[Rfam]
RNA sequence: AGCGAAAUGAUGAAAUCAGUUGAGCUGAAAUUCUUUUAUGUGGAAUUCAUUCAUCUGAACAUUAUGCCUUCAAAGUUCUCUGAUCGCU
Numbered sequence: 001a002g003c004g005a006a007a008u009g010a011u012g013a014a015a016u017c018a019g020u021u022g023a024g025c026u027g028a029a030a031u032u033c034u035u036u037u038a039u040g041u042g043g044a045a046u047u048c049a050u051u052c053a054u055c056u057g058a059a060c061a062u063u064a065u066g067c068c069u070u071c072a073a074a075g076u077u078c079u080c081u082g083a084u085c086g087c088u
Stems, first nucleotide, its partner, number of pairs: 001088005
The family of this 88-nucleotide RNA from Chenopodium quinoa is "Small nucleolar RNA R160".
On this family, see Chen et al., Nucleic Acids Res 2003: "The high diversity of snoRNAs in plants: identification and comparative study of 120 snoRNA genes from Oryza sativa".
By type it is a C/D-box small nucleolar RNA.
snoR160 is a C/D box small nucleolar RNA, which acts as a methylation guide for 25S ribosomal RNA in plants. snoR160 has been alternatively named snoZ270 in rice.